[Rfam]
RNA sequence: GACGCCGCGAGGCCAAGCUGAAAGCAGGGUGUAGCCAAGACACGACCGUAGGAACACGAACAGGCAGCGAGGCCGGAUGCGGGCGAUGAGCGUGCUAGGGAACGCGAAAUCCAACCGUCACCGAAAGACGUCUCCGGUAGAGCCUGGCGGCACGGGUCGAAAGUACAUGUU
Dot-bracket structure: ...(((....))).............((.....((...(((.((.((((...........(((((......(((.((.(((...(((..((((........))))...))).................))).)).)))...)))))))))..)).)))....)).....))